The family of this 67-nucleotide RNA from Clupea harengus is "mir-29 microRNA precursor family". Pairs were carried over by alignment from the consensus structure, which was predicted with PFOLD. Rfam's curators write: This family represents the microRNA (miRNA) precursors mir-29. Rfam links the family to the GO terms RISC complex and gene silencing by miRNA. The family has 168 seed sequences and 3,328 matches in Rfam 15.1.

[Rfam]
RNA sequence: AGAUGACUGAUUUCCUCUGGUGUUUAGAGCCGCCUUGCCUUCUAGCACCAUUUGAAAUCGGUUAUGA
Numbered sequence: 001a002g003a004u005g006a007c008u009g010a011u012u013u014c015c016u017c018u019g020g021u022g023u024u025u026a027g028a029g030c031c032g033c034c035u036u037g038c039c040u041u042c043u044a045g046c047a048c049c050a051u052u053u054g055a056a057a058u059c060g061g062u063u064a065u066g067a
Stems, first nucleotide, its partner, number of pairs: 003065002005062001007061008018050005025044004